[Rfam]
The family of this 70-nucleotide sequence from Orthohepacivirus hominis is "Hepatitis C virus stem-loop VII". A reference for the family is Pirakitikulr et al. (2016), "The Coding Region of the HCV Genome Contains a Network of Regulatory RNA Structures", Mol Cell. Taxonomically the source falls in Orthohepacivirus hominis (Viruses, Riboviria, Hepaciviridae, Orthohepacivirus). The sequence is in the family's curated seed alignment.

RNA sequence: UAGGCUUCUGUCCAGAGGAGGCAGGGCUGCCAUAUGUGGCAAGUACCUCUUCAACUGGGCAGUAAGAACA
Dot-bracket structure: .....((.(..((.(.(((((....(((((.....))))).....))))).....).))..).)).....
Numbered sequence: 001u002a003g004g005c006u007u008c009u010g011u012c013c014a015g016a017g018g019a020g021g022c023a024g025g026g027c028u029g030c031c032a033u034a035u036g037u038g039g040c041a042a043g044u045a046c047c048u049c050u051u052c053a054a055c056u057g058g059g060c061a062g063u064a065a066g067a068a069c070a
Stems, first nucleotide, its partner, number of pairs: 006065002009062001012059002015056001017050005026040005